[Rfam]
RNA sequence: GCCGGGCUUGGUAACGUGGGCCUGUAACUCGAGUGAGGGCAUACUUCUGGACGUUAGUUCGGCUCAUGUGAUUGGAUCCUGGUGGCUAACUUCUGGCCCGCCCAUUCCAAGCUAAGAGUUGGGCUCUGUGGUUUGGGCGAAGGCCUGGAUCAAAUGGCUCAUAGUGUGGAGGGUACCGCGUAAGGCUGGUUUCACAGAGCAGCGAUUACCUCCCACUCCUAGCAGUGGAAGGAUAACGGGUCGGUGCCACGAGGAUCCAACAUGGUCACAUGGGCUGUUCAUAAUUGGACA
Number, nucleotide and partner (000 for none) at each position: 001g040002c039003c038004g023005g022006g021007c020008u019009u018010g017011g000012u000013a000014a000015c000016g000017u010018g009019g008020g007021c006022c005023u004024g000025u000026a000027a000028c037029u036030c035031g000032a000033g000034u000035g030036a029037g028038g003039g002040c001041a000042u000043a000044c000045u000046u000047c000048u291049g290050g000051a000052c287053g286054u284055u283056a282057g280058u000059u000060c277061g276062g275063c000064u273065c272066a271067u270068g269069u268070g267071a266072u265073u264074g258075g257076a256077u255078c254079c253080u252081g250082g000083u249084g248085g247086c000087u246088a245089a000090c000091u000092u000093c244094u243095g242096g241097c240098c239099c238100g237101c000102c232103c231104a000105u230106u229107c228108c227109a226110a000111g223112c222113u221114a220115a000116g218117a217118g216119u215120u000121g160122g159123g158124c157125u156126c000127u154128g000129u152130g151131g150132u149133u148134u147135g146136g145137g144138c143139g000140a000141a000142g000143g138144c137145c136146u135147g134148g133149a132150u131151c130152a129153a000154a127155u000156g125157g124158c123159u122160c121161a000162u000163a000164g000165u000166g000167u000168g213169g212170a211171g210172g209173g000174u000175a000176c000177c000178g000179c204180g203181u202182a000183a000184g000185g000186c197187u196188g195189g000190u000191u000192u000193c000194a000195c188196a187197g186198a000199g000200c000201a000202g181203c180204g179205a000206u000207u000208a000209c172210c171211u170212c169213c168214c000215a119216c118217u117218c116219c000220u114221a113222g112223c111224a000225g000226u109227g108228g107229a106230a105231g103232g102233a000234u000235a000236a000237c100238g099239g098240g097241u096242c095243g094244g093245u088246g087247c085248c084249a083250c081251g000252a080253g079254g078255a077256u076257c075258c074259a000260a000261c000262a000263u000264g073265g072266u071267c070268a069269c068270a067271u066272g065273g064274g000275c062276u061277g060278u000279u000280c057281a000282u056283a055284a054285u000286u053287g052288g000289a000290c049291a048
A member of the RNA family "Plant signal recognition particle RNA" from Ziziphus jujuba, 291 nucleotides long.
It is annotated as a non-coding RNA gene.